Shown here is a 66-nucleotide sequence from Sarcophilus harrisii, a member of the family "MAT2A 3'UTR stem loop F". The match comes from Rfam's covariance-model search (60 bits).
[Rfam]
RNA sequence: CAUGGAGAAAGCUGACUUGGCUAAUGUGGUACAUAGAAGAUAGCUCAUUUAUAUACCUAAUCCAUG
Numbered sequence: 001c002a003u004g005g006a007g008a009a010a011g012c013u014g015a016c017u018u019g020g021c022u023a024a025u026g027u028g029g030u031a032c033a034u035a036g037a038a039g040a041u042a043g044c045u046c047a048u049u050u051a052u053a054u055a056c057c058u059a060a061u062c063c064a065u066g
Stems, first nucleotide, its partner, number of pairs: 001066006009058001011056001014049002019045005025039001026032002